[Rfam]
The family of this 106-nucleotide RNA is "Plastid-psbA-1 3UTR RNA". By type it is a cis-regulatory element. Rfam's curators write: Plastid psbA-1 is a non-coding RNA (ncRNA) present in plastids.
RNA sequence: GUUGAAGUUCCAUCUACAAACGGAUAAGACAUUUUGUCUUAGUGUAUAGGGGUUGUUGAAGUAAUAAUACCAAACCUCCUCAUUAGAGGUUUGGUAUUAUUACUUU
Numbered sequence: 001g002u003u004g005a006a007g008u009u010c011c012a013u014c015u016a017c018a019a020a021c022g023g024a025u026a027a028g029a030c031a032u033u034u035u036g037u038c039u040u041a042g043u044g045u046a047u048a049g050g051g052g053u054u055g056u057u058g059a060a061g062u063a064a065u066a067a068u069a070c071c072a073a074a075c076c077u078c079c080u081c082a083u084u085a086g087a088g089g090u091u092u093g094g095u096a097u098u099a100u101u102a103c104u105u106u
Stems, first nucleotide, its partner, number of pairs: 009024003013020001061103010072092003076088003